Description
The record is a 103-nucleotide sequence from Geobacillus kaustophilus, which matches "SAM riboswitch aptamer (S box leader)" in Rfam. Rfam's curators put it in the seed alignment. Its family is annotated with regulation of gene expression in the Gene Ontology. Pairs were carried over by alignment from the consensus structure, which is taken from published work. Taxonomically the source falls in Geobacillus kaustophilus (Bacteria, Bacillati, Bacillota, Caryophanales).
RNA sequence: UUCUUAUCAAGAGAGGGGGAGGGACUGGCCCGGUGAACCCUCAGCAACCUGGCCCGCGGCCAAGGUGCUAAAUCCAGACAGGCGGAAGCCUGGAAGAUAAGAA
Numbered sequence: 001u002u003c004u005u006a007u008c009a010a011g012a013g014a015g016g017g018g019g020a021g022g023g024a025c026u027g028g029c030c031c032g033g034u035g036a037a038c039c040c041u042c043a044g045c046a047a048c049c050u051g052g053c054c055c056g057c058g059g060c061c062a063a064g065g066u067g068c069u070a071a072a073u074c075c076a077g078a079c080a081g082g083c084g085g086a087a088g089c090c091u092g093g094a095a096g097a098u099a100a101g102a103a
Stems, first nucleotide, its partner, number of pairs: 001103008013042005021031003025077004043069004048065002050062004073095001079092004